[Rfam]
RNA sequence: CUCAAAACUGCUAGGUCUUAUUGCCUAGCAGGACCCAACACUGUUGGGUCCUUCUGCCAAGCAUGACACAAUGAUGCUGGGCUCUAUUGCCCAGCAGCAUUGGCC
Dot-bracket structure: ((.((..(((((.(((..((..(((((((.(((((((((...)))))))))......((............))..)))))))..))..))).)))))..))))..
Numbered sequence: 001c002u003c004a005a006a007a008c009u010g011c012u013a014g015g016u017c018u019u020a021u022u023g024c025c026u027a028g029c030a031g032g033a034c035c036c037a038a039c040a041c042u043g044u045u046g047g048g049u050c051c052u053u054c055u056g057c058c059a060a061g062c063a064u065g066a067c068a069c070a071a072u073g074a075u076g077c078u079g080g081g082c083u084c085u086a087u088u089g090c091c092c093a094g095c096a097g098c099a100u101u102g103g104c105c
Stems, first nucleotide, its partner, number of pairs: 001103002004101002008097005014091003019086002023082007031051009058073002
A member of the RNA family "MIR474 microRNA precursor family" from Populus tomentosa, 105 nucleotides long. Rfam links the family to the GO terms miRNA-mediated post-transcriptional gene silencing and RISC complex. Taxonomically the source falls in Populus (Eukaryota, Embryophyta, Mesangiospermae, Gunneridae).